[Rfam]
RNA sequence: UCGGUACCGGUUCACGUCCCGCCCACGGGGGCGGCGACGACCCGGCGCC
Numbered sequence: 001u002c003g004g005u006a007c008c009g010g011u012u013c014a015c016g017u018c019c020c021g022c023c024c025a026c027g028g029g030g031g032c033g034g035c036g037a038c039g040a041c042c043c044g045g046c047g048c049c
Stems, first nucleotide, its partner, number of pairs: 003049002007045004015039004019034006

Shown here is a 49-nucleotide sequence, a member of the family "L31-Actinobacteria ribosomal protein leader".
On this family, see Eckert and Weinberg, BMC Microbiol 2020: "Discovery of 20 novel ribosomal leader candidates in bacteria and archaea".